The family of this 156-nucleotide sequence from Plasmodium malariae is "Plasmodium RNA of unknown function RUF2". The family's consensus secondary structure was predicted with WAR. It is annotated as a small RNA.
RNA sequence: CGUAUUGAACGAUUCGAAGAGUUACUAUUGCGAAUAUUUUUAUAUAAAUAUUAAAACAAAAUAAUAACUUCAAAUUUGUUCAUAUAACAAAUGUAUAUACGGUGGCUUUUUAAAUUCAUAAUUUUAGAAAUGUCAAUCCAUAUAUAUCACAGAAAU
Numbered sequence: 001c002g003u004a005u006u007g008a009a010c011g012a013u014u015c016g017a018a019g020a021g022u023u024a025c026u027a028u029u030g031c032g033a034a035u036a037u038u039u040u041u042a043u044a045u046a047a048a049u050a051u052u053a054a055a056a057c058a059a060a061a062u063a064a065u066a067a068c069u070u071c072a073a074a075u076u077u078g079u080u081c082a083u084a085u086a087a088c089a090a091a092u093g094u095a096u097a098u099a100c101g102g103u104g105g106c107u108u109u110u111u112a113a114a115u116u117c118a119u120a121a122u123u124u125u126a127g128a129a130a131u132g133u134c135a136a137u138c139c140a141u142a143u144a145u146a147u148c149a150c151a152g153a154a155a156u
Base pairs, nucleotide, nucleotide: 006082007081008080009079010078011077021068022067023066024065026063027062028061029060035058037056038055039054040053093147094146095145096144097143098142099141101139102138103135104134105133106132107130108129109128110127111126112125113124114123
NCBI's taxonomy places the organism under Eukaryota, Alveolata, Aconoidasida, Plasmodiidae, Plasmodium.